[Rfam]
RNA: c-di-AMP riboswitch aptamer (ydaO/yuaA leader)
Organism: Geobacillus kaustophilus
RNA sequence: GAAUAUUUAGCGCUGAAUCCGUCAUGGAGCGGGGGACCCACUUGUUGCAACGCUCGUUGCUAGGGGUGAAUCCGAAAGGACGGGCAUCUCUCCAAGCCCGAACCCGACAGCUAACCUCGCAAGCGCUUUGGGGAGGGACG
Numbered sequence: 001g002a003a004u005a006u007u008u009a010g011c012g013c014u015g016a017a018u019c020c021g022u023c024a025u026g027g028a029g030c031g032g033g034g035g036a037c038c039c040a041c042u043u044g045u046u047g048c049a050a051c052g053c054u055c056g057u058u059g060c061u062a063g064g065g066g067u068g069a070a071u072c073c074g075a076a077a078g079g080a081c082g083g084g085c086a087u088c089u090c091u092c093c094a095a096g097c098c099c100g101a102a103c104c105c106g107a108c109a110g111c112u113a114a115c116c117u118c119g120c121a122a123g124c125g126c127u128u129u130g131g132g133g134a135g136g137g138a139c140g
Stems, first nucleotide, its partner, number of pairs: 011125004018028003029120006039063001064105003072079002082099004